U1A polyadenylation inhibition element (PIE): a 76-nucleotide RNA from Sphaeramia orbicularis.
The literature on the family includes a 2004 paper in Biochemistry by Clerte and Hall, "Global and Local Dynamics of the U1A Polyadenylation Inhibition Element (PIE) RNA and PIE RNA-U1A Complexes".
Gene Ontology term of the family: regulation of mRNA polyadenylation.
The organism belongs to Sphaeramia, within Eukaryota.
Pairs were carried over by alignment from the consensus structure, which is taken from published work.
From the family's description: This family represents the U1A polyadenylation inhibition element (PIE). PIE is a regulatory RNA which is responsible for the regulation of the length of the polyA tail of the U1A pre-mRNA. The PIE is located in the U1A mRNA 3' UTR. PIE adopts a U-shaped structure, with binding sites for a single U1A protein at each bend and when complexed with the two proteins it blocks activity of poly(A) polymerase (PAP), and inhibits its activity.
The match comes from Rfam's covariance-model search (71 bits).
RNA sequence: CCUUAAAGCAUUGCACCCAGGGUCUGUCCUACCAGACAUUGUAUCUGGAGCUUUUCCUUUUAUAUUAAAAAAAAAA
Numbered sequence: 001c002c003u004u005a006a007a008g009c010a011u012u013g014c015a016c017c018c019a020g021g022g023u024c025u026g027u028c029c030u031a032c033c034a035g036a037c038a039u040u041g042u043a044u045c046u047g048g049a050g051c052u053u054u055u056c057c058u059u060u061u062a063u064a065u066u067a068a069a070a071a072a073a074a075a076a
Base pairs, nucleotide, nucleotide: 005054006053007052008051009050017048018047019046020045022037023036024035025034026033